[Rfam]
RNA sequence: GUUGAAAUAAGAGUUUAUCGAAUGUGCCUACUAAAGUAGGAACUGUCAGGGACAGUAA
Number, nucleotide and partner (000 for none) at each position: 001g000002u000003u000004g000005a000006a000007a000008u000009a000010a000011g000012a000013g000014u000015u000016u000017a000018u000019c000020g000021a000022a000023u000024g000025u000026g000027c040028c039029u038030a037031c036032u000033a000034a000035a000036g031037u030038a029039g028040g027041a000042a056043c055044u054045g053046u052047c051048a000049g000050g000051g047052a046053c045054a044055g043056u042057a000058a000
RNA: RAGATH-30 RNA